[Rfam]
RNA: Small nucleolar RNA snoR136
Organism: Coptis chinensis
RNA sequence: AUGGCUUCACUUCUUAAAUUGCGUGCAUGAUGAGUUGAUCUCAUGUGGGAACUUGUUAGGUGAAGCUAGAGUAAUGUUCCCCUCGCUAUCCAAUGCGGACUAUUUAAUGCUGUAUUUGGACGUUGGGGAAUAACAACU
Number, nucleotide and partner (000 for none) at each position: 001a000002u068003g067004g066005c065006u000007u000008c062009a061010c060011u059012u058013c000014u000015u000016a000017a000018a000019u000020u000021g052022c000023g000024u049025g000026c047027a046028u045029g000030a044031u043032g042033a000034g000035u000036u000037g000038a000039u000040c000041u000042c032043a031044u030045g028046u027047g026048g000049g024050a000051a000052c021053u000054u000055g000056u000057u000058a012059g011060g010061u009062g008063a000064a000065g005066c004067u003068a002069g000070a000071g000072u000073a000074a000075u000076g131077u130078u129079c128080c127081c126082c125083u000084c122085g121086c000087u000088a000089u120090c119091c118092a117093a116094u000095g000096c000097g000098g110099a000100c000101u000102a000103u000104u000105u000106a000107a000108u000109g000110c098111u000112g000113u000114a000115u000116u093117u092118g091119g090120a089121c085122g084123u000124u000125g082126g081127g080128g079129a078130a077131u076132a000133a000134c000135a000136a000137c000138u000